[Rfam]
RNA: Small nucleolar RNA snoR31/Z110/Z27
RNA sequence: UUGAUCAAGUGAUGAAAUCAGAAAUUAAAUCUUAGGACAUCUUCCUACACGGCUCUACCCAGAGUUGUGGAAGAGAAAGACAUUUCUAAUCCGAUGAUGAA
Numbered sequence: 001u002u003g004a005u006c007a008a009g010u011g012a013u014g015a016a017a018u019c020a021g022a023a024a025u026u027a028a029a030u031c032u033u034a035g036g037a038c039a040u041c042u043u044c045c046u047a048c049a050c051g052g053c054u055c056u057a058c059c060c061a062g063a064g065u066u067g068u069g070g071a072a073g074a075g076a077a078a079g080a081c082a083u084u085u086c087u088a089a090u091c092c093g094a095u096g097a098u099g100a101a
Base pairs, nucleotide, nucleotide: 001101002100004098005097006096007095045051